tRNA: a 74-nucleotide RNA sequence from Alkalibaculum bacchi. The family's RNA type in Rfam is transfer RNA. The organism belongs to Alkalibaculum, within Bacteria.
[Rfam]
RNA sequence: GCGCUUGUAGCUCAGUAGGAUAGAGCAACGGCCUUCUAAGCCGUGUGCCAGGGGUUCGAAUCCCUUCAAGCGCG
Numbered sequence: 001g002c003g004c005u006u007g008u009a010g011c012u013c014a015g016u017a018g019g020a021u022a023g024a025g026c027a028a029c030g031g032c033c034u035u036c037u038a039a040g041c042c043g044u045g046u047g048c049c050a051g052g053g054g055u056u057c058g059a060a061u062c063c064c065u066u067c068a069a070g071c072g073c074g
Stems, first nucleotide, its partner, number of pairs: 001073007010026004028044005050066005